The family of this 164-nucleotide sequence from Carassius auratus is "U1 spliceosomal RNA". It scores 157 bits against the family's covariance model. About the family: U1 is a small nuclear RNA (snRNA) component of the spliceosome (involved in pre-mRNA splicing). Its family is annotated with pre-mRNA 5'-splice site binding, U1 snRNP and mRNA 5'-splice site recognition in the Gene Ontology. Taxonomically the source falls in Carassius (Eukaryota, Bilateria, Gnathostomata, Cyprinidae). Clan: U1 clan.
[Rfam]
RNA sequence: AUACUUACCUGGCAGGGGAGACACCAUGAUCAAGAAGGCGGUUCACCCAGGGCGAGGCUUGUCCAUUGCACUCCGGCCAUGCUGACCCCUGCGAAUUCCCCAAAUGCGGGAAUCUCGACUGCAUAAUUUAUGGUAGUGGGGGACUGCGUUCGCGCUCUCCCUGA
Numbered sequence: 001a002u003a004c005u006u007a008c009c010u011g012g013c014a015g016g017g018g019a020g021a022c023a024c025c026a027u028g029a030u031c032a033a034g035a036a037g038g039c040g041g042u043u044c045a046c047c048c049a050g051g052g053c054g055a056g057g058c059u060u061g062u063c064c065a066u067u068g069c070a071c072u073c074c075g076g077c078c079a080u081g082c083u084g085a086c087c088c089c090u091g092c093g094a095a096u097u098c099c100c101c102a103a104a105u106g107c108g109g110g111a112a113u114c115u116c117g118a119c120u121g122c123a124u125a126a127u128u129u130a131u132g133g134u135a136g137u138g139g140g141g142g143a144c145u146g147c148g149u150u151c152g153c154g155c156u157c158u159c160c161c162u163g164a
Base pairs, nucleotide, nucleotide: 012122013121014120015119016048017047018046020044021043023042024041025040027038049090050089051088052087054086056083057082058081060079061078063076064075092117093116094115095113096112097111099109100108137163138162139161140160141159143158146155147154148153